[Rfam]
RNA sequence: GUGAAGUGAUGUCAAAGUUUAUCCAUUCUCUGAGUGCAGUGGUGCUGCCCUCCUGCAGCACCCCAGUUCCUGUUCUAGGGUCUGGGUGCUGUGCAGCCUCCAAAACCCAUCCAGUCUCCCUGUGUCCUACUGGGGGCUGCUGUGGUGUGUGGCUGGCUGCCUGCAGGAGGGAAGUGGUGCCGGCAAGGUUGGAGCCCCUCUUUGGGGGGUUCCAUCCUCACUGAGAUGAGGGAUGAUGUCUGAUCAC
Numbered sequence: 001g002u003g004a005a006g007u008g009a010u011g012u013c014a015a016a017g018u019u020u021a022u023c024c025a026u027u028c029u030c031u032g033a034g035u036g037c038a039g040u041g042g043u044g045c046u047g048c049c050c051u052c053c054u055g056c057a058g059c060a061c062c063c064c065a066g067u068u069c070c071u072g073u074u075c076u077a078g079g080g081u082c083u084g085g086g087u088g089c090u091g092u093g094c095a096g097c098c099u100c101c102a103a104a105a106c107c108c109a110u111c112c113a114g115u116c117u118c119c120c121u122g123u124g125u126c127c128u129a130c131u132g133g134g135g136g137c138u139g140c141u142g143u144g145g146u147g148u149g150u151g152g153c154u155g156g157c158u159g160c161c162u163g164c165a166g167g168a169g170g171g172a173a174g175u176g177g178u179g180c181c182g183g184c185a186a187g188g189u190u191g192g193a194g195c196c197c198c199u200c201u202u203u204g205g206g207g208g209g210u211u212c213c214a215u216c217c218u219c220a221c222u223g224a225g226a227u228g229a230g231g232g233a234u235g236a237u238g239u240c241u242g243a244u245c246a247c
Stems, first nucleotide, its partner, number of pairs: 010246002017239002020236001023232002026230003030225002034221002039184002042181001043179006049171002051168007061088001063086002066082001068080004093160006106145002108142001112139005118134003122130003186218003190214004195209004
Small nucleolar RNA SNORD17: a 247-nucleotide RNA sequence from Chlamydotis macqueenii. NCBI's taxonomy places the organism under Eukaryota, Bilateria, Dipnotetrapodomorpha, Amniota, Chlamydotis. A search with the family's covariance model found it, with a score of 128 bits. For this family Rfam cites "RNomics: an experimental approach that identifies 201 candidates for novel, small, non-messenger RNAs in mouse" (Huttenhofer et al., EMBO J, 2001). By type it is a C/D-box small nucleolar RNA. Rfam describes the family as follows. The snoRNA HBI-43 belongs to the C/D family of snoRNAs, guiding 2'O-ribose methylation at position U3797 of the 28S rRNA. Pseudouridylation in position U3797 is predicted to be guided by the H/ACA snoRNA ACA48.